[Rfam]
RNA sequence: ACACAAUGUUUACAAAUUAGAUUAUCGACAUGGUGAAUCCCCCUGUGCGGUGGGGCGACCAGUCACUUACAGUGAUCUGUAAAUGCAGCGCGGGCCAUGUCGGCUGGGACAUGCUCACCGGGAGGCACCCGGCACCAUGCAAUACUACUAAGACAUUAGGUUGUGGGUUGCCGUUUCGGCUUCUCCAGC
Numbered sequence: 001a002c003a004c005a006a007u008g009u010u011u012a013c014a015a016a017u018u019a020g021a022u023u024a025u026c027g028a029c030a031u032g033g034u035g036a037a038u039c040c041c042c043c044u045g046u047g048c049g050g051u052g053g054g055g056c057g058a059c060c061a062g063u064c065a066c067u068u069a070c071a072g073u074g075a076u077c078u079g080u081a082a083a084u085g086c087a088g089c090g091c092g093g094g095c096c097a098u099g100u101c102g103g104c105u106g107g108g109a110c111a112u113g114c115u116c117a118c119c120g121g122g123a124g125g126c127a128c129c130c131g132g133c134a135c136c137a138u139g140c141a142a143u144a145c146u147a148c149u150a151a152g153a154c155a156u157u158a159g160g161u162u163g164u165g166g167g168u169u170g171c172c173g174u175u176u177c178g179g180c181u182u183c184u185c186c187a188g189c
Stems, first nucleotide, its partner, number of pairs: 014149001029139007040055004063081001085091002092116004097112003118132005160189004170180004
Rfam assigns this 189-nucleotide RNA sequence from Klebsiella phage 1 LV-2017 to the family "Gammaproteobacterial sRNA STnc100".